This 367-nucleotide RNA from Lachnoclostridium phytofermentans belongs to the Rfam family "T-box leader". Uncharged tRNA acts as the effector for transcription antitermination of genes in the T-box leader family. T-boxes are found upstream of many aminoacyl-tRNA synthetase genes and some amino acid biosynthetic genes usually in Gram-positive bacteria. The anticodon of a specific tRNA base pairs to a specifier sequence within the T-box motif, and the NCCA acceptor tail of the tRNA base pairs to a conserved bulge in the T-box antiterminator hairpin.

RNA sequence: AAAAAGGCUAGGAAGAGAAGAGUAGUCUUUCUAACACUUACAGAGAGCCUUCGGUUGGUGGAAGAAGGUAGUGAAAGAAUGGUGAAACAAGACUCGGAGCUGCAUACGGAUAUAAAAUUAGGAAUACCAAGUAUUAAUGGUUACCAGAGAAUUAAUGAAUACCACUGGAGAAAUAAUGGUAACCUGAAUAUUAAUGGCUACUAGAGAAUUAAUGAUUACCAGAAUAUUAAUGGUUGUUGCCUUAUUUUAUUGAUGCUAUGACGGUUGUCUCCGUUACAGGACUAGAGUAUCUAAGUGUACUUGAUAAGGUUGAUAUGGUGACGUAUCAAUGAAAUAGGGUGGUACCGCGAAUUCAUUCGCCCCUUGC
Numbered sequence: 001a002a003a004a005a006g007g008c009u010a011g012g013a014a015g016a017g018a019a020g021a022g023u024a025g026u027c028u029u030u031c032u033a034a035c036a037c038u039u040a041c042a043g044a045g046a047g048c049c050u051u052c053g054g055u056u057g058g059u060g061g062a063a064g065a066a067g068g069u070a071g072u073g074a075a076a077g078a079a080u081g082g083u084g085a086a087a088c089a090a091g092a093c094u095c096g097g098a099g100c101u102g103c104a105u106a107c108g109g110a111u112a113u114a115a116a117a118u119u120a121g122g123a124a125u126a127c128c129a130a131g132u133a134u135u136a137a138u139g140g141u142u143a144c145c146a147g148a149g150a151a152u153u154a155a156u157g158a159a160u161a162c163c164a165c166u167g168g169a170g171a172a173a174u175a176a177u178g179g180u181a182a183c184c185u186g187a188a189u190a191u192u193a194a195u196g197g198c199u200a201c202u203a204g205a206g207a208a209u210u211a212a213u214g215a216u217u218a219c220c221a222g223a224a225u226a227u228u229a230a231u232g233g234u235u236g237u238u239g240c241c242u243u244a245u246u247u248u249a250u251u252g253a254u255g256c257u258a259u260g261a262c263g264g265u266u267g268u269c270u271c272c273g274u275u276a277c278a279g280g281a282c283u284a285g286a287g288u289a290u291c292u293a294a295g296u297g298u299a300c301u302u303g304a305u306a307a308g309g310u311u312g313a314u315a316u317g318g319u320g321a322c323g324u325a326u327c328a329a330u331g332a333a334a335u336a337g338g339g340u341g342g343u344a345c346c347g348c349g350a351a352u353u354c355a356u357u358c359g360c361c362c363c364u365u366g367c
Stems, first nucleotide, its partner, number of pairs: 007100002015095003025083003029079002036072003047069006103260004107255001262273003309330007336364004347360005
A search with the family's covariance model found it, with a score of 103 bits.